This 125-nucleotide sequence from Cytobacillus kochii belongs to the Rfam family "RNA Staph. aureus E (RoxS)". It is annotated as a small RNA. The source organism's lineage runs through Bacteria, Bacillota, Bacilli, Bacillaceae and Cytobacillus. It was shown to be regulated by the presence of nitric oxide (NO). In Bacillus subtilis it controls expression of genes with functions related to oxidative stress and oxidation-reduction reactions and it was renamed RoxS (for related to oxidative stress). The family's consensus secondary structure is taken from published work.

RNA sequence: GUGAAGUUAAUCACAAACAAACAAUUUACCCCUUUGUUUGAUCGUGAAAAAUUUCUCCCAUCCCCUUUGUUAAAUAUAUUUACAUGAAAAACCCUACGCCUCAUGAGAGAGUGUAGGGUUUUUUA
Numbered sequence: 001g002u003g004a005a006g007u008u009a010a011u012c013a014c015a016a017a018c019a020a021a022c023a024a025u026u027u028a029c030c031c032c033u034u035u036g037u038u039u040g041a042u043c044g045u046g047a048a049a050a051a052u053u054u055c056u057c058c059c060a061u062c063c064c065c066u067u068u069g070u071u072a073a074a075u076a077u078a079u080u081u082a083c084a085u086g087a088a089a090a091a092c093c094c095u096a097c098g099c100c101u102c103a104u105g106a107g108a109g110a111g112u113g114u115a116g117g118g119u120u121u122u123u124u125a
Base pairs, nucleotide, nucleotide: 003055004054005053006052007051008050011047012046013045014044018040019039020038021037022036023035071084074080088122089121090120091119092118093117094116095115096114097113098112
Dot-bracket structure: ..((((((..((((...((((((...........))))))...))))..))))))...............(..(.....)...)...(((((((((((.............)))))))))))...